[Rfam]
RNA sequence: AAUAUUUAAACGAGAGGAAUGAUGGGUGGACGAUGAUUAACUAAUCUUAUUUUUUAUCAAUUGAAAUUAAAUAUUUCAACUUGUACAAAAGAUAGGAUUAGUCUGCCCAUUUUUCAAUGUUCGGUAUUUCAUAUAAUGCACGCGCUACGACUCGUAGCUUUUUUCCGCAUGCAUUGUAUAAGACUAGUCCUUCCAAUUGACUUUGGGAGGAUUUUUUU
Numbered sequence: 001a002a003u004a005u006u007u008a009a010a011c012g013a014g015a016g017g018a019a020u021g022a023u024g025g026g027u028g029g030a031c032g033a034u035g036a037u038u039a040a041c042u043a044a045u046c047u048u049a050u051u052u053u054u055u056a057u058c059a060a061u062u063g064a065a066a067u068u069a070a071a072u073a074u075u076u077c078a079a080c081u082u083g084u085a086c087a088a089a090a091g092a093u094a095g096g097a098u099u100a101g102u103c104u105g106c107c108c109a110u111u112u113u114u115c116a117a118u119g120u121u122c123g124g125u126a127u128u129u130c131a132u133a134u135a136a137u138g139c140a141c142g143c144g145c146u147a148c149g150a151c152u153c154g155u156a157g158c159u160u161u162u163u164u165c166c167g168c169a170u171g172c173a174u175u176g177u178a179u180a181a182g183a184c185u186a187g188u189c190c191u192u193c194c195a196a197u198u199g200a201c202u203u204u205g206g207g208a209g210g211a212u213u214u215u216u217u218u
Stems, first nucleotide, its partner, number of pairs: 016115004023109004029103003042100013059081001061079007123165002132156003136152001186213011
Bacillus sRNA ncr1575: a 218-nucleotide RNA from Priestia koreensis. For this family Rfam cites "Identification of regulatory RNAs in Bacillus subtilis" (Irnov et al., Nucleic Acids Res, 2010). Pairs were carried over by alignment from the consensus structure, which is taken from published work. A search with the family's covariance model found it, with a score of 147 bits.